The family of this 92-nucleotide RNA sequence from Fictibacillus macauensis is "pan motif".
RNA sequence: AAGGCGGUAUCCUAUGGAACUGCACUUUCAAUCGGGUAAUACAGAUUAUGGACAGCAUUCUGCCUAGAUCCGAAUAGGACCGGGACAGAGGG
Numbered sequence: 001a002a003g004g005c006g007g008u009a010u011c012c013u014a015u016g017g018a019a020c021u022g023c024a025c026u027u028u029c030a031a032u033c034g035g036g037u038a039a040u041a042c043a044g045a046u047u048a049u050g051g052a053c054a055g056c057a058u059u060c061u062g063c064c065u066a067g068a069u070c071c072g073a074a075u076a077g078g079a080c081c082g083g084g085a086c087a088g089a090g091g092g
Stems, first nucleotide, its partner, number of pairs: 001027003004023005010018002060088003063084003067080001069079003
The family's consensus secondary structure is taken from published work.